Rfam assigns this 200-nucleotide RNA from Paenibacillus prosopidis to the family "c-di-AMP riboswitch aptamer (ydaO/yuaA leader)". Taxonomically the source falls in Paenibacillus (Bacteria, Bacilli, Caryophanales, Paenibacillaceae). This family represents a conserved RNA structure found upstream of the ydaO and yuaA genes in Bacillus subtilis and related genes in other bacteria.

RNA sequence: AUUUGAUGAUCGCUGAGUUUCCGUUAUAGCGGAAAGCGGGGGAACCAAUUAUUAGGCAGUGUACGAGUUCGAUGUGAGAGUCGGACUGUUGCACCGCAGGGGUGAAUCUUUGCACGGUACCAUGGAUACCGGACAAAGUAGGGCGACUCUCACCGCCCGAAUCCGACAGCUAACCUCGUAAGCGUGGAUCGAGAGAGGGA
Number, nucleotide and partner (000 for none) at each position: 001a000002u000003u000004u000005g000006a000007u000008g000009a000010u000011c184012g183013c182014u181015g000016a000017g000018u035019u034020u033021c032022c031023g030024u029025u000026a000027u000028a000029g024030c023031g022032g021033a020034a019035a018036g179037c178038g177039g176040g175041g174042g000043a000044a000045c000046c099047a000048a000049u000050u000051a000052u000053u000054a000055g000056g000057c000058a000059g000060u000061g000062u000063a000064c000065g000066a000067g000068u000069u000070c000071g000072a000073u000074g000075u000076g000077a000078g000079a000080g000081u000082c000083g000084g000085a000086c000087u000088g000089u000090u000091g000092c000093a000094c000095c000096g000097c000098a000099g046100g164101g163102g162103u000104g000105a000106a000107u000108c138109u137110u136111u135112g000113c000114a000115c000116g000117g000118u000119a000120c000121c000122a000123u000124g000125g000126a000127u000128a000129c000130c000131g000132g000133a000134c000135a111136a110137a109138g108139u000140a000141g158142g157143g156144c155145g000146a000147c000148u000149c000150u000151c000152a000153c000154c000155g144156c143157c142158c141159g000160a000161a000162u102163c101164c100165g000166a000167c000168a000169g000170c000171u000172a000173a000174c041175c040176u039177c038178g037179u036180a000181a014182g013183c012184g011185u000186g000187g000188a000189u000190c000191g000192a000193g000194a000195g000196a000197g000198g000199g000200a000